[Rfam]
RNA: HIV Rev response element
Organism: Lentivirus humimdef1
RNA sequence: ACCAGGUAAAGCUAAAAGACGCACAGUGAGUAGAGAAAAAAGAGCAGCCUUUGGACUAGGUGCGCUGUUUCUUGGGUUUCUUGGAGCAGCAGGGAGCACUAUGGGCGCAGCGUCAAUAACGCUGACGGUACAGGCCCGGACAUUAUUAUCUGGGAUAGUGCAACAGCAGAAUAUUCUGUUGAGAGCAAUAGAGGCGCAACAACAUUUGUUGCAACUCUCAAUCUGGGGCAUUAAACAGCUCCAGGCAAAAGUCCUUGCUAUAGAAAGAUACCUUAGGGAUCAGCAAAUCCUAAGUCUAUGGGGCUGCUCAGGAAAAACAAUAUGCUAUACCACUGUGCCUUGGA
Numbered sequence: 001a002c003c004a005g006g007u008a009a010a011g012c013u014a015a016a017a018g019a020c021g022c023a024c025a026g027u028g029a030g031u032a033g034a035g036a037a038a039a040a041a042g043a044g045c046a047g048c049c050u051u052u053g054g055a056c057u058a059g060g061u062g063c064g065c066u067g068u069u070u071c072u073u074g075g076g077u078u079u080c081u082u083g084g085a086g087c088a089g090c091a092g093g094g095a096g097c098a099c100u101a102u103g104g105g106c107g108c109a110g111c112g113u114c115a116a117u118a119a120c121g122c123u124g125a126c127g128g129u130a131c132a133g134g135c136c137c138g139g140a141c142a143u144u145a146u147u148a149u150c151u152g153g154g155a156u157a158g159u160g161c162a163a164c165a166g167c168a169g170a171a172u173a174u175u176c177u178g179u180u181g182a183g184a185g186c187a188a189u190a191g192a193g194g195c196g197c198a199a200c201a202a203c204a205u206u207u208g209u210u211g212c213a214a215c216u217c218u219c220a221a222u223c224u225g226g227g228g229c230a231u232u233a234a235a236c237a238g239c240u241c242c243a244g245g246c247a248a249a250a251g252u253c254c255u256u257g258c259u260a261u262a263g264a265a266a267g268a269u270a271c272c273u274u275a276g277g278g279a280u281c282a283g284c285a286a287a288u289c290c291u292a293a294g295u296c297u298a299u300g301g302g303g304c305u306g307c308u309c310a311g312g313a314a315a316a317a318c319a320a321u322a323u324g325c326u327a328u329a330c331c332a333c334u335g336u337g338c339c340u341u342g343g344a
Stems, first nucleotide, its partner, number of pairs: 002343003005339004021330001023328001025326002030323003042309008057292004069279004074273004078268002081265001086261001088259004096161006102132002106127002108124006135154006142146001164181007182255002185252002191217003196212007222245008